[Rfam]
RNA: Small nucleolar RNA SNORD109A
RNA sequence: GGAUAGAUGAUGAUCAUAAUAUUAUGAGGGUGCUGAAUGAUUCACUCUAGAUAACAGUCUGAGAUCU
Numbered sequence: 001g002g003a004u005a006g007a008u009g010a011u012g013a014u015c016a017u018a019a020u021a022u023u024a025u026g027a028g029g030g031u032g033c034u035g036a037a038u039g040a041u042u043c044a045c046u047c048u049a050g051a052u053a054a055c056a057g058u059c060u061g062a063g064a065u066c067u
Stems, first nucleotide, its partner, number of pairs: 001067004
Dot-bracket structure: ((((...........................................................))))